[Rfam]
RNA sequence: UGAGCUUGAUCUUUUCGAAGUCUUACGUGCCACGUAGGCUAUUAAUGUAGAAAAGGUGGGGCUCA
Number, nucleotide and partner (000 for none) at each position: 001u065002g064003a063004g062005c061006u060007u059008g000009a057010u056011c055012u054013u053014u052015u051016c050017g000018a000019a000020g040021u000022c038023u037024u036025a035026c034027g033028u032029g000030c000031c000032a028033c027034g026035u025036a024037g023038g022039c000040u020041a000042u000043u000044a000045a000046u000047g000048u000049a000050g016051a015052a014053a013054a012055g011056g010057u009058g000059g007060g006061g005062c004063u003064c002065a001

Shown here is a 65-nucleotide sequence from Lentibacillus populi, a member of the family "DUF3800-VIII RNA". A search with the family's covariance model found it, with a score of 55 bits. From the family's description: Bacteroidetes, Cyanobacteria, Firmicutes, Planctomycetes (1 example), Proteobacteria, Tenericutes (1 example). Pairs were carried over by alignment from the consensus structure, which is taken from published work. Rfam classes the family as a small RNA. Taxonomically the source falls in Lentibacillus (Bacteria, Bacillati, Bacilli, Bacillaceae).